Annotation
Shown here is a 94-nucleotide RNA sequence from Dichanthelium oligosanthes, a member of the family "Small nucleolar RNA snoR26". The match comes from Rfam's covariance-model search (72 bits). The base pairs follow the family's consensus structure, which was predicted with WAR. The family's RNA type in Rfam is C/D-box small nucleolar RNA. The organism belongs to Dichanthelium, within Eukaryota. Gene Ontology terms of the family: RNA processing and nucleolus.
[Rfam]
RNA sequence: AGAGCAUCAAUGAUGUAACAUCCAAAUUUACUCAACCGUGCACUUUGAGCUGCGCGGUGAAGAAAUCAUUGGGGGAAUGUUGUCUGAGAUGCUC
Numbered sequence: 001a002g003a004g005c006a007u008c009a010a011u012g013a014u015g016u017a018a019c020a021u022c023c024a025a026a027u028u029u030a031c032u033c034a035a036c037c038g039u040g041c042a043c044u045u046u047g048a049g050c051u052g053c054g055c056g057g058u059g060a061a062g063a064a065a066u067c068a069u070u071g072g073g074g075g076a077a078u079g080u081u082g083u084c085u086g087a088g089a090u091g092c093u094c
Stems, first nucleotide, its partner, number of pairs: 002094007